Shown here is a 122-nucleotide sequence, a member of the family "DUF3800-III RNA".
[Rfam]
RNA sequence: AAACGGGACUCGUAAGUCCUGGAUCAGGCUGCUCCGAUGUAAGUCGGUGAUACUCCGUCGGGCUACUAAGGCCCCACCUUGAGUGUGAACGGUGAGAAUCGGCCCCCAGGGUGAGCCCGUUU
Numbered sequence: 001a002a003a004c005g006g007g008a009c010u011c012g013u014a015a016g017u018c019c020u021g022g023a024u025c026a027g028g029c030u031g032c033u034c035c036g037a038u039g040u041a042a043g044u045c046g047g048u049g050a051u052a053c054u055c056c057g058u059c060g061g062g063c064u065a066c067u068a069a070g071g072c073c074c075c076a077c078c079u080u081g082a083g084u085g086u087g088a089a090c091g092g093u094g095a096g097a098a099u100c101g102g103c104c105c106c107c108a109g110g111g112u113g114a115g116c117c118c119g120u121u122u
Stems, first nucleotide, its partner, number of pairs: 001122007009115004018110005027104003034047005075085003
Rfam's curators put it in the seed alignment. The family's RNA type in Rfam is small RNA.